Shown here is a 72-nucleotide RNA sequence from Streptomyces fulvorobeus, a member of the family "tRNA".

RNA sequence: GGGCGAUUAGCUCAGUGGGAGAGCGCUUCGUUCACACCGAAGAGGUCACUGGUUCGAAACCAGUAUCGCCCA
Numbered sequence: 001g002g003g004c005g006a007u008u009a010g011c012u013c014a015g016u017g018g019g020a021g022a023g024c025g026c027u028u029c030g031u032u033c034a035c036a037c038c039g040a041a042g043a044g045g046u047c048a049c050u051g052g053u054u055c056g057a058a059a060c061c062a063g064u065a066u067c068g069c070c071c072a
Stems, first nucleotide, its partner, number of pairs: 001071007010024004026042005048064005

Pairs were carried over by alignment from the consensus structure, which is taken from published work. A search with the family's covariance model found it, with a score of 69 bits.